[Rfam]
Record summary:
Rfam assigns this 104-nucleotide RNA from Lihuaxuella thermophila to the family "pan motif". The family's RNA type in Rfam is cis-regulatory element. The source organism's lineage runs through Bacteria, Bacilli, Caryophanales, Thermoactinomycetaceae and Lihuaxuella. The base pairs follow the family's consensus structure, which is taken from published work.

RNA sequence: UAGGCGGCAUCUCUCAUGAGCCGCACUAUGCUUGUCUUGCGAUAGUUCUGCUUAUUUCUGCCUGAUGUAAAUCUGCUUCGAGCCGUUGGGACGGAGACAGAGGG
Numbered sequence: 001u002a003g004g005c006g007g008c009a010u011c012u013c014u015c016a017u018g019a020g021c022c023g024c025a026c027u028a029u030g031c032u033u034g035u036c037u038u039g040c041g042a043u044a045g046u047u048c049u050g051c052u053u054a055u056u057u058c059u060g061c062c063u064g065a066u067g068u069a070a071a072u073c074u075g076c077u078u079c080g081a082g083c084c085g086u087u088g089g090g091a092c093g094g095a096g097a098c099a100g101a102g103g104g
Stems, first nucleotide, its partner, number of pairs: 001028003004024005010019002073100003076096005083090002